The family of this 170-nucleotide RNA from Adhaeribacter soli is "Group II catalytic intron D1-D4-3". Taxonomically the source falls in Adhaeribacter (Bacteria, Pseudomonadati, Cytophagia, Cytophagales).
RNA sequence: UUUACCGUGAGGUAUGCUUGAAGAAAGCGGGACUGCAAAAUCCGGUACAGACGAACAGAAAGUACAUAAGACGCAUAUUCGCGCGGGUAAGCAGGCACCUCUUUUCAAAGCCCCCGACCAACAAGCGCUCGUAUGUAGGUGUACUGGGAAUCGGAGAAAGGAAUGUGCUC
Numbered sequence: 001u002u003u004a005c006c007g008u009g010a011g012g013u014a015u016g017c018u019u020g021a022a023g024a025a026a027g028c029g030g031g032a033c034u035g036c037a038a039a040a041u042c043c044g045g046u047a048c049a050g051a052c053g054a055a056c057a058g059a060a061a062g063u064a065c066a067u068a069a070g071a072c073g074c075a076u077a078u079u080c081g082c083g084c085g086g087g088u089a090a091g092c093a094g095g096c097a098c099c100u101c102u103u104u105u106c107a108a109a110g111c112c113c114c115c116g117a118c119c120a121a122c123a124a125g126c127g128c129u130c131g132u133a134u135g136u137a138g139g140u141g142u143a144c145u146g147g148g149a150a151u152c153g154g155a156g157a158a159a160g161g162a163a164u165g166u167g168c169u170c
Stems, first nucleotide, its partner, number of pairs: 001016001003014004027170001029168001031166001036161001041155005046149001048147001050145001062144006073136003077132002081128003085113004091106001093104002